The family of this 138-nucleotide RNA is "Small nucleolar RNA SNORA43".
RNA sequence: GCUGUCCUGGACCUGCCAGCUGCACAGAUGCAGAUGCUCUGCUAUGCCUGUAACAUCGGGGCGAAGUGAAAGUGGCUAUUUCUACACUCAGUUUUCAGAAAACAGUGAACAACAAGAAUGGAUAAUAGCCUGACAUUU
Numbered sequence: 001g002c003u004g005u006c007c008u009g010g011a012c013c014u015g016c017c018a019g020c021u022g023c024a025c026a027g028a029u030g031c032a033g034a035u036g037c038u039c040u041g042c043u044a045u046g047c048c049u050g051u052a053a054c055a056u057c058g059g060g061g062c063g064a065a066g067u068g069a070a071a072g073u074g075g076c077u078a079u080u081u082c083u084a085c086a087c088u089c090a091g092u093u094u095u096c097a098g099a100a101a102a103c104a105g106u107g108a109a110c111a112a113c114a115a116g117a118a119u120g121g122a123u124a125a126u127a128g129c130c131u132g133a134c135a136u137u138u
Base pairs, nucleotide, nucleotide: 003063004062005061006060007059008058009057010056024051025050026049027048074130075129076128082121083120084119087116088115092111094109095108096107097106
Notes: By type it is an H/ACA-box small nucleolar RNA. The family's consensus secondary structure was predicted with RNAfold. Rfam's curators write: ACA43 is a member of the H/ACA class of snoRNA that guide the sites of modification of uridines to pseudouridines. The family has 21 seed sequences and 492 matches in Rfam 15.1. Its family is annotated with RNA processing and nucleolus in the Gene Ontology.